Shown here is a 91-nucleotide RNA sequence from Cohnella sp. OV330, a member of the family "BsrC". The family's RNA type in Rfam is small RNA.
RNA sequence: AUGCACGAAAGCAACGAAAGCCCUGCCUCUCAGUCGUUCUUGCGGCUCCAAUGACCGCGCCAGUCUUGAAUUCGUGUCCUUCCAGCAGCCU
Number, nucleotide and partner (000 for none) at each position: 001a000002u000003g000004c000005a000006c000007g000008a000009a000010a000011g000012c000013a000014a000015c000016g000017a000018a000019a000020g000021c000022c000023c000024u000025g000026c000027c000028u000029c000030u000031c000032a000033g000034u069035c068036g067037u000038u000039c063040u062041u059042g058043c057044g056045g055046c000047u053048c000049c000050a000051a000052u000053g047054a000055c045056c044057g043058c042059g041060c000061c000062a040063g039064u000065c000066u000067u036068g035069a034070a000071u000072u000073c000074g000075u000076g000077u000078c000079c000080u000081u000082c000083c000084a000085g000086c000087a000088g000089c000090c000091u000
The base pairs follow the family's consensus structure, which was predicted with CMfinder. From the family's description: The 301 nucleotide sequence from Kouji Nakamura has been trimmed to a highly conserved ~85 nucleotide long core to form this family. The organism belongs to Cohnella, within Bacteria.